Source information: The record is a 108-nucleotide RNA sequence from Ascidiaceihabitans donghaensis, which matches "Glycine riboswitch aptamer" in Rfam. The organism belongs to Ascidiaceihabitans, within Bacteria. A search with the family's covariance model found it, with a score of 54 bits.
RNA sequence: UAUCAACGAUCUGGAGAGUGGCUUGCGCCAAGCGCCGCAGGCCCACCGAAGGAGGAAGCCGUUCGUAAGAAGGGUGAAGCUCUCAGGUCUCGUGACAGAUGGGGACGC
Numbered sequence: 001u002a003u004c005a006a007c008g009a010u011c012u013g014g015a016g017a018g019u020g021g022c023u024u025g026c027g028c029c030a031a032g033c034g035c036c037g038c039a040g041g042c043c044c045a046c047c048g049a050a051g052g053a054g055g056a057a058g059c060c061g062u063u064c065g066u067a068a069g070a071a072g073g074g075u076g077a078a079g080c081u082c083u084c085a086g087g088u089c090u091c092g093u094g095a096c097a098g099a100u101g102g103g104g105a106c107g108c
Base pairs, nucleotide, nucleotide: 007102009100010099011098012097013096020043021042022041023040024039025038026037027036045088046087047086048084049083052082053081054080058075059074